Rfam assigns this 539-nucleotide part of an RNA from Plasmodium berghei to the family "Eukaryotic large subunit ribosomal RNA". The sequence is in the family's curated seed alignment.
[Rfam]
RNA sequence: AUUUUCGAAAGAUCUCUCAGGAUCGCUGGAGUUGAUUAAUAUAGUUUUACGAGGUAGAGAUAAUGAUUAGAGGAUUCAGGGAAAUCGUUUUCCUUGGCCUAUUCUCAAACUCCCAAUACGUAAUAAGGGAUUAAUAUCUUUAUUGUAUUUUUCCCACUAUAAAUAAGAUAACUCCAAGUGGGCCAUUUUUGGUAAGCAGAACUGGCGAUGAGGGAUGCUCCUAACGCUUGGAUAAGGUGCCUAAAUAUUCGCUCAUGAGAUCCCAUAAAAGGUGUUGGUUCAUAAUGACAGUAGGACGGUGGUCAUGGAAGUCGAAAUCCGCUAAGGAGUGUGUAACAACUCACCUACCGAAUGAACUAGCCCUGAAAAUGGAUGGCGCUAAAGCGGAUUACCGAUACCAAGCCAUAGAAAGAGAUUUAAGGGUUAUUUGGGUUCGUCCCUAUUAAUCUUUUUUUGAAUCUUUCUAUGAGUAGAAAAUCGUGGGGUUUGUGUAGAAGCAAGAUGCGUGAGCUCUUGUGGAACAUAUCCCUAGUGCAGAU
Numbered sequence: 001a002u003u004u005u006c007g008a009a010a011g012a013u014c015u016c017u018c019a020g021g022a023u024c025g026c027u028g029g030a031g032u033u034g035a036u037u038a039a040u041a042u043a044g045u046u047u048u049a050c051g052a053g054g055u056a057g058a059g060a061u062a063a064u065g066a067u068u069a070g071a072g073g074a075u076u077c078a079g080g081g082a083a084a085u086c087g088u089u090u091u092c093c094u095u096g097g098c099c100u101a102u103u104c105u106c107a108a109a110c111u112c113c114c115a116a117u118a119c120g121u122a123a124u125a126a127g128g129g130a131u132u133a134a135u136a137u138c139u140u141u142a143u144u145g146u147a148u149u150u151u152u153c154c155c156a157c158u159a160u161a162a163a164u165a166a167g168a169u170a171a172c173u174c175c176a177a178g179u180g181g182g183c184c185a186u187u188u189u190u191g192g193u194a195a196g197c198a199g200a201a202c203u204g205g206c207g208a209u210g211a212g213g214g215a216u217g218c219u220c221c222u223a224a225c226g227c228u229u230g231g232a233u234a235a236g237g238u239g240c241c242u243a244a245a246u247a248u249u250c251g252c253u254c255a256u257g258a259g260a261u262c263c264c265a266u267a268a269a270a271g272g273u274g275u276u277g278g279u280u281c282a283u284a285a286u287g288a289c290a291g292u293a294g295g296a297c298g299g300u301g302g303u304c305a306u307g308g309a310a311g312u313c314g315a316a317a318u319c320c321g322c323u324a325a326g327g328a329g330u331g332u333g334u335a336a337c338a339a340c341u342c343a344c345c346u347a348c349c350g351a352a353u354g355a356a357c358u359a360g361c362c363c364u365g366a367a368a369a370u371g372g373a374u375g376g377c378g379c380u381a382a383a384g385c386g387g388a389u390u391a392c393c394g395a396u397a398c399c400a401a402g403c404c405a406u407a408g409a410a411a412g413a414g415a416u417u418u419a420a421g422g423g424u425u426a427u428u429u430g431g432g433u434u435c436g437u438c439c440c441u442a443u444u445a446a447u448c449u450u451u452u453u454u455u456g457a458a459u460c461u462u463u464c465u466a467u468g469a470g471u472a473g474a475a476a477a478u479c480g481u482g483g484g485g486u487u488u489g490u491g492u493a494g495a496a497g498c499a500a501g502a503u504g505c506g507u508g509a510g511c512u513c514u515u516g517u518g519g520a521a522c523a524u525a526u527c528c529c530u531a532g533u534g535c536a537g538a539u
Stems, first nucleotide, its partner, number of pairs: 001478006011024005027176007045125001047123005057113001058111002064107003069102001071100003076097006084090001127155004133149004182206004187201005211222003226403005236393003245390001247389001250386003270364003274361010291348005297321003303315002322326001327342001331340002404468009479534001481531005488523003497517002504511002